[Rfam]
RNA: c-di-GMP-I riboswitch aptamer
RNA sequence: UAUAUGUAUGGGCAAACUCGUUGAAAGGCGGGGACGCAAAGCCUCAGGUCUAAAGCAAGACAAAGGUGCUACGACGGCUGGGUUGCAAAA
Numbered sequence: 001u002a003u004a005u006g007u008a009u010g011g012g013c014a015a016a017c018u019c020g021u022u023g024a025a026a027g028g029c030g031g032g033g034a035c036g037c038a039a040a041g042c043c044u045c046a047g048g049u050c051u052a053a054a055g056c057a058a059g060a061c062a063a064a065g066g067u068g069c070u071a072c073g074a075c076g077g078c079u080g081g082g083u084u085g086c087a088a089a090a
Base pairs, nucleotide, nucleotide: 012037013036017032018031019030020029021028022027040084041083042082043081045080046079047078048075049074050073055069056068057067